[Rfam]
RNA sequence: AUAUUGAAAUUGAACAGGCUGUGUACCAUAUCGUACAUGAGGCCGGGUCUUUUAAAGACAGUGGAAAUAACAUCCAUGGGACACAA
Numbered sequence: 001a002u003a004u005u006g007a008a009a010u011u012g013a014a015c016a017g018g019c020u021g022u023g024u025a026c027c028a029u030a031u032c033g034u035a036c037a038u039g040a041g042g043c044c045g046g047g048u049c050u051u052u053u054a055a056a057g058a059c060a061g062u063g064g065a066a067a068u069a070a071c072a073u074c075c076a077u078g079g080g081a082c083a084c085a086a
Stems, first nucleotide, its partner, number of pairs: 011083002015080001017044004021038006047059005061077005
This 86-nucleotide sequence from Bacillus benzoevorans belongs to the Rfam family "NiCo (Nickel/Cobalt) riboswitch aptamer".
The organism belongs to Bacillus, within Bacteria.
On this family, see Furukawa et al., Mol Cell 2015: "Bacterial riboswitches cooperatively bind Ni(2+) or Co(2+) ions and control expression of heavy metal transporters".
Clan: NiCo_riboswitches.
A search with the family's covariance model found it, with a score of 54 bits.
The base pairs follow the family's consensus structure, which is taken from published work.